The record is a 57-nucleotide sequence from a Bacteroidaceae bacterium, which matches "Bacteroidetes FopS (family of paralogous sRNAs)" in Rfam. Rfam links the family to the GO term sRNA-mediated gene silencing. Lineage of the source: Bacteria > Bacteroidota > Bacteroidia > Bacteroidales > Bacteroidaceae. Rfam's curators write: The RNA-binding protein RbpB and BTncRNA_FopS sRNA are involved in the post-transcription regulation of polysaccharide utilisation loci (PUL). FopS sRNAs function as post-transcriptional repressors by binding to the vicinity of the start codon of the first mRNA of target PUL polycistrons, typically corresponding to the cognate SusC homolog, impeding translation of the respective glycan transporter. By type it is a small RNA. The family's consensus secondary structure is taken from published work. The family has 12 seed sequences and 822 matches in Rfam 15.1.
[Rfam]
RNA sequence: CUGUUUUUCAUGGUAUUAGAUUUAAGGUUAGUAAAAGAUUGAUUGUCGUGAGACAAU
Numbered sequence: 001c002u003g004u005u006u007u008u009c010a011u012g013g014u015a016u017u018a019g020a021u022u023u024a025a026g027g028u029u030a031g032u033a034a035a036a037g038a039u040u041g042a043u044u045g046u047c048g049u050g051a052g053a054c055a056a057u
Base pairs, nucleotide, nucleotide: 042057043056044055045054046053047052